[Rfam]
RNA: Makes More Granules Regulator RNA (mmgR)
Organism: Oceanibaculum indicum
RNA sequence: UGUUAUGGCCUCUCGACCGACGCCUGGUGGCGAUUCCUCCCUAAACUUGGGCCGUGCCGCUUAACAGCGGCGCGGUCUUUUUUUGUGCCGC
Numbered sequence: 001u002g003u004u005a006u007g008g009c010c011u012c013u014c015g016a017c018c019g020a021c022g023c024c025u026g027g028u029g030g031c032g033a034u035u036c037c038u039c040c041c042u043a044a045a046c047u048u049g050g051g052c053c054g055u056g057c058c059g060c061u062u063a064a065c066a067g068c069g070g071c072g073c074g075g076u077c078u079u080u081u082u083u084u085g086u087g088c089c090g091c
Base pairs, nucleotide, nucleotide: 008031009030010029051076052075053074054073055072056071057070058069059068